[Rfam]
RNA sequence: GUCAACCAAGGGCAUAACCGCAGCAAUGCGGCGACGCAAAGCCUCCGAUCCGUAUAAGGUUCGCGGAUAGCGGGGUUCCCGGU
Numbered sequence: 001g002u003c004a005a006c007c008a009a010g011g012g013c014a015u016a017a018c019c020g021c022a023g024c025a026a027u028g029c030g031g032c033g034a035c036g037c038a039a040a041g042c043c044u045c046c047g048a049u050c051c052g053u054a055u056a057a058g059g060u061u062c063g064c065g066g067a068u069a070g071c072g073g074g075g076u077u078c079c080c081g082g083u
Base pairs, nucleotide, nucleotide: 012037013036018031019030020029021028022027040077041076042075043074045073046072047071048068049067050066051063052062054060